The family of this 35-nucleotide sequence from Pteropus alecto is "Iron response element I". Rfam classes the family as a cis-regulatory element.

[Rfam]
RNA sequence: CUGUCUCUUGCAUCAACAGUGUUUCAAUGGAACAG
Numbered sequence: 001c002u003g004u005c006u007c008u009u010g011c012a013u014c015a016a017c018a019g020u021g022u023u024u025c026a027a028u029g030g031a032a033c034a035g
Base pairs, nucleotide, nucleotide: 001035002034003033004032006031007030008029010028013026015024016023017021
Background:
A search with the family's covariance model found it, with a score of 36 bits. The family has 62 seed sequences and 6,829 matches in Rfam 15.1. Pairs were carried over by alignment from the consensus structure, which is taken from published work. Lineage of the source: Eukaryota > Opisthokonta > Metazoa > Chiroptera > Pteropus. A reference for the family is Sammarco et al. (2008), "Ferritin L and H subunits are differentially regulated on a post-transcriptional level", J Biol Chem.